ASpks TB sRNA: a 75-nucleotide sequence from Streptomyces luteoverticillatus. It is annotated as an antisense RNA.
Nucleotides: 075
Stems, first nucleotide, its partner, number of pairs: 015025003032070002038065002043060001047056003
Number, partner (000 for none) and nucleotide at each position: 001000c002000u003000u004000g005000a006000g007000c008000g009000c010000c011000c012000c013000g014000a015025g016024c017023c018000a019000c020000a021000g022000c023017g024016g025015c026000c027000g028000g029000u030000c031000g032070c033069c034000g035000g036000g037000c038065c039064g040000c041000u042000c043060c044000c045000u046000c047056c048055c049054g050000u051000a052000c053000a054049c055048g056047g057000c058000u059000u060043g061000c062000a063000g064039u065038g066000c067000c068000c069033g070032g071000g072000c073000c074000u075000c
Record summary:
The literature on the family includes a 2009 paper in Mol Microbiol by Arnvig and Young, "Identification of small RNAs in Mycobacterium tuberculosis". Taxonomically the source falls in Streptomyces (Bacteria, Actinomycetota, Actinomycetes, Streptomycetaceae). The base pairs follow the family's consensus structure, which is taken from published work.